[Rfam]
RNA sequence: CUCCGAUGAUUACUUUUGUUUUGUGCCACGUGUCUGGGCCACUGAAUACUUGUGAUGGUAUCGAGGAACUGAAGGAG
Numbered sequence: 001c002u003c004c005g006a007u008g009a010u011u012a013c014u015u016u017u018g019u020u021u022u023g024u025g026c027c028a029c030g031u032g033u034c035u036g037g038g039c040c041a042c043u044g045a046a047u048a049c050u051u052g053u054g055a056u057g058g059u060a061u062c063g064a065g066g067a068a069c070u071g072a073a074g075g076a077g
Stems, first nucleotide, its partner, number of pairs: 001077004